Shown here is a 166-nucleotide RNA from Bombyx mori, a member of the family "R2 RNA element". NCBI's taxonomy places the organism under Eukaryota, Mandibulata, Amphiesmenoptera, Lepidoptera, Bombyx. This family represents the 3' UTR region of the R2 retrotransposable element. This family is known to interact with the R2-encoded reverse transcriptase in a reaction known as target primed reverse transcription (TPRT). The family's RNA type in Rfam is cis-regulatory element. It scores 40 bits against the family's covariance model. On this family, see Ruschak et al., RNA 2004: "Secondary structure models of the 3' untranslated regions of diverse R2 RNAs".

[Rfam]
RNA sequence: AAAUGGCUAAUGACUAACACAUGGAUAAAGGUUGUCCCAUAAUAAAAAGGGACAGAUAACCAGGAGGGAGGUUUUAGUCCGUAGGUCAUUGAGACACUUUCUCAGUGGAGUCGGGCAUACCCUUUGGCCCCGACCCUUGGGUAUCCAUGAGAAUUUCCUUUCGCCC
Numbered sequence: 001a002a003a004u005g006g007c008u009a010a011u012g013a014c015u016a017a018c019a020c021a022u023g024g025a026u027a028a029a030g031g032u033u034g035u036c037c038c039a040u041a042a043u044a045a046a047a048a049g050g051g052a053c054a055g056a057u058a059a060c061c062a063g064g065a066g067g068g069a070g071g072u073u074u075u076a077g078u079c080c081g082u083a084g085g086u087c088a089u090u091g092a093g094a095c096a097c098u099u100u101c102u103c104a105g106u107g108g109a110g111u112c113g114g115g116c117a118u119a120c121c122c123u124u125u126g127g128c129c130c131c132g133a134c135c136c137u138u139g140g141g142u143a144u145c146c147a148u149g150a151g152a153a154u155u156u157c158c159u160u161u162c163g164c165c166c
Stems, first nucleotide, its partner, number of pairs: 033054006063166002067162001069159003077116005086108009118143005